[Rfam]
RNA sequence: CGACUCUUUCUGAUGAAACAAUUUACGGAUAUCUGAGUCCCACGACUCGCACGUCCGAGAGCGCAAAACCUUGUGGAUUCUUCCGUUGCCUUCCUUCUGACCCAUU
Number, nucleotide and partner (000 for none) at each position: 001c000002g000003a105004c000005u000006c000007u000008u000009u000010c000011u000012g000013a000014u000015g000016a000017a000018a000019c000020a000021a000022u000023u000024u000025a000026c085027g084028g083029a082030u000031a000032u000033c000034u000035g000036a000037g000038u000039c000040c000041c000042a000043c000044g000045a000046c000047u000048c000049g000050c000051a000052c000053g000054u000055c000056c000057g000058a000059g000060a000061g000062c000063g000064c000065a000066a000067a000068a000069c000070c000071u000072u000073g000074u000075g000076g000077a000078u000079u000080c000081u000082u029083c028084c027085g026086u000087u000088g000089c000090c000091u000092u000093c000094c000095u000096u000097c000098u000099g000100a000101c000102c000103c000104a000105u003106u000
Annotation
The record is a 106-nucleotide RNA from Tricholomella constricta, which matches "Small nucleolar RNA Z13/snr52" in Rfam. The family has 42 seed sequences and 1,203 matches in Rfam 15.1.